RNA sequence: AAACUUAGAAGGCCGAAGCUUCUUAGGAAGCACGGGGGACCCAUUCUUUGGGGUGAAGCCGCUAUCUAAGCGGCCGGGUGAUUACUCUUUGACCCGAAUCCGACAGCUAACCUCGCAGGCCGCAAAAAGGAGAGAU
Numbered sequence: 001a002a003a004c005u006u007a008g009a010a011g012g013c014c015g016a017a018g019c020u021u022c023u024u025a026g027g028a029a030g031c032a033c034g035g036g037g038g039a040c041c042c043a044u045u046c047u048u049u050g051g052g053g054u055g056a057a058g059c060c061g062c063u064a065u066c067u068a069a070g071c072g073g074c075c076g077g078g079u080g081a082u083u084a085c086u087c088u089u090u091g092a093c094c095c096g097a098a099u100c101c102g103a104c105a106g107c108u109a110a111c112c113u114c115g116c117a118g119g120c121c122g123c124a125a126a127a128a129g130g131a132g133a134g135a136u
Stems, first nucleotide, its partner, number of pairs: 011121004018031003033115005042050002051101003059073004076095004
About this RNA
The record is a 136-nucleotide RNA from Paenibacillus silvestris, which matches "c-di-AMP riboswitch aptamer (ydaO/yuaA leader)" in Rfam. The base pairs follow the family's consensus structure.